This 54-nucleotide RNA sequence from Neogobius melanostomus belongs to the Rfam family "Editing element of GABA-3 exon 9". Taxonomically the source falls in Neogobius (Eukaryota, Neopterygii, Eurypterygia, Acanthomorphata). A search with the family's covariance model found it, with a score of 70 bits. Pairs were carried over by alignment from the consensus structure, which is taken from published work.

RNA sequence: AAAGUGUCCUAUGCCACCGCCAUGGACUGGUUCAUCGCUGUGUGCUUUGGCUUC
Numbered sequence: 001a002a003a004g005u006g007u008c009c010u011a012u013g014c015c016a017c018c019g020c021c022a023u024g025g026a027c028u029g030g031u032u033c034a035u036c037g038c039u040g041u042g043u044g045c046u047u048u049g050g051c052u053u054c
Stems, first nucleotide, its partner, number of pairs: 002053002006051003011046001013045002015042003019038002022035005